The record is a 150-nucleotide sequence from Permianibacter aggregans, which matches "Molybdenum/Tungsten riboswitch aptamer (Moco RNA motif)" in Rfam. The source organism's lineage runs through Bacteria, Gammaproteobacteria, Pseudomonadales, Pseudomonadaceae and Permianibacter. A search with the family's covariance model found it, with a score of 71 bits.
RNA sequence: AUAGUGACAGCACUCCGAGCGCAUCGGGCUAAGGCGGAAACGCUAUGUCAGUUGCGCCGUGUAUCGACGGCUUGUGUCGCGGUGCACCAGGGCCAUACGCGAAAGCGGUGAUGCCUCCCGUGUUUGGAAAGGAGAAAGAAGAUGUUGCAA
Numbered sequence: 001a002u003a004g005u006g007a008c009a010g011c012a013c014u015c016c017g018a019g020c021g022c023a024u025c026g027g028g029c030u031a032a033g034g035c036g037g038a039a040a041c042g043c044u045a046u047g048u049c050a051g052u053u054g055c056g057c058c059g060u061g062u063a064u065c066g067a068c069g070g071c072u073u074g075u076g077u078c079g080c081g082g083u084g085c086a087c088c089a090g091g092g093c094c095a096u097a098c099g100c101g102a103a104a105g106c107g108g109u110g111a112u113g114c115c116u117c118c119c120g121u122g123u124u125u126g127g128a129a130a131g132g133a134g135a136a137a138g139a140a141g142a143u144g145u146u147g148c149a150a
Stems, first nucleotide, its partner, number of pairs: 004143001013134004019057005025051001027049003033044004059087008090116004096110002098107003117127002